[Rfam]
RNA sequence: CACAAAGGAUGGAAGGCUAAGUUCGCGACGUCCUGUCGCAACGCCUUCAUGACCCACAUCCUGUGGG
Numbered sequence: 001c002a003c004a005a006a007g008g009a010u011g012g013a014a015g016g017c018u019a020a021g022u023u024c025g026c027g028a029c030g031u032c033c034u035g036u037c038g039c040a041a042c043g044c045c046u047u048c049a050u051g052a053c054c055c056a057c058a059u060c061c062u063g064u065g066g067g
Stems, first nucleotide, its partner, number of pairs: 012048006025039005053067005
Dot-bracket structure: ...........((((((.......(((((.....)))))...))))))....(((((.....)))))
RNA: Bacillaceae-1 RNA